[Rfam]
RNA sequence: AUAAUGAUACUUCCGUAACUAAAUUGGCUCGCCAUUACUGGGGAGAGGUGAAAAUCCUAUGU
Numbered sequence: 001a002u003a004a005u006g007a008u009a010c011u012u013c014c015g016u017a018a019c020u021a022a023a024u025u026g027g028c029u030c031g032c033c034a035u036u037a038c039u040g041g042g043g044a045g046a047g048g049u050g051a052a053a054a055u056c057c058u059a060u061g062u
Base pairs, nucleotide, nucleotide: 012059013027014026015025028045029044030043032041033040034039046058047057048056